Rfam assigns this 140-nucleotide RNA from Anoxybacillus sp. B7M1 to the family "Group II catalytic intron D1-D4-4". About the family: Group II introns are found in rRNA, tRNA and mRNA of organelles in fungi, plants and protists, and also in mRNA in bacteria. The pairing is the family consensus, mapped onto this sequence. The match comes from Rfam's covariance-model search (58 bits).

[Rfam]
RNA sequence: AUGUUGGAGAAAGUCUAAUCCAAGUAAGUGCCAAGACACUUGAGUAGCUGAUCGGCAAUUGGUGGAGAAAUCCUAGGUGUAUGCCCGAUGACAAUGUAACUUCUUUUAGAGUGCUAGCAAAUCAGCAGGUAGUAACAUAA
Numbered sequence: 001a002u003g004u005u006g007g008a009g010a011a012a013g014u015c016u017a018a019u020c021c022a023a024g025u026a027a028g029u030g031c032c033a034a035g036a037c038a039c040u041u042g043a044g045u046a047g048c049u050g051a052u053c054g055g056c057a058a059u060u061g062g063u064g065g066a067g068a069a070a071u072c073c074u075a076g077g078u079g080u081a082u083g084c085c086c087g088a089u090g091a092c093a094a095u096g097u098a099a100c101u102u103c104u105u106u107u108a109g110a111g112u113g114c115u116a117g118c119a120a121a122u123c124a125g126c127a128g129g130u131a132g133u134a135a136c137a138u139a140a
Base pairs, nucleotide, nucleotide: 020044021042022041023040024039051089052088053087054086055085058078059077060076065072066071096114097113099112100111101110102109117133118132